[Rfam]
RNA sequence: CUGUUAAAGAAGAAAUAUCCGUUUCUCACCUUACCACAUCAGUGCGUUGGGUUAAUUAUAGUUUUUUGAUUUUUAAUUACUGUAAAUUAGUGCGGAUAGAUUUUCUAUCCGCUUUUUAUUUGCUUU
Numbered sequence: 001c002u003g004u005u006a007a008a009g010a011a012g013a014a015a016u017a018u019c020c021g022u023u024u025c026u027c028a029c030c031u032u033a034c035c036a037c038a039u040c041a042g043u044g045c046g047u048u049g050g051g052u053u054a055a056u057u058a059u060a061g062u063u064u065u066u067u068g069a070u071u072u073u074u075a076a077u078u079a080c081u082g083u084a085a086a087u088u089a090g091u092g093c094g095g096a097u098a099g100a101u102u103u104u105c106u107a108u109c110c111g112c113u114u115u116u117u118a119u120u121u122g123c124u125u126u
Base pairs, nucleotide, nucleotide: 011026012025013024014023015022016021028052029051030050033047034046036043037042092112093111094110095109096108097107098106099105100104
Dot-bracket structure: ..........((((((....)))))).(((..((.((....))..))..))).......................................(((((((((...)))))))))..............

Background: Shown here is a 126-nucleotide RNA from Peptostreptococcaceae bacterium AS15, a member of the family "Ribosomal protein L20 leader". The source organism's lineage runs through Bacteria, Bacillati, Bacillota, Clostridia and Peptostreptococcaceae. The family's consensus secondary structure was predicted with CMfinder. About the family: This family is a putative r-protein leader autoregulatory structure found in B. subtilis and other low-GC Gram-positive bacteria. It is located in the 5' untranslated regions of mRNAs encoding initiation factor 3 followed by ribosomal proteins L35 and L20 (infC-rpmI-rplT). A Rho-independent transcription terminator structure that is probably involved in regulation is included at the 3' end. On this family, see Zengel and Lindahl, Prog Nucleic Acid Res Mol Biol 1994: "Diverse mechanisms for regulating ribosomal protein synthesis in Escherichia coli".